[Rfam]
RNA: S10-Clostridia ribosomal protein leader
Organism: Desulforamulus aquiferis
RNA sequence: GGAUAGCGAUGAAGUGAAAGGUUGCUCGUCAUUUGAGGUUAAUUUUCACGGAGCAGUCCGCUGAAUCGGACGA
Numbered sequence: 001g002g003a004u005a006g007c008g009a010u011g012a013a014g015u016g017a018a019a020g021g022u023u024g025c026u027c028g029u030c031a032u033u034u035g036a037g038g039u040u041a042a043u044u045u046u047c048a049c050g051g052a053g054c055a056g057u058c059c060g061c062u063g064a065a066u067c068g069g070a071c072g073a
Stems, first nucleotide, its partner, number of pairs: 014049003018046004025037004056071005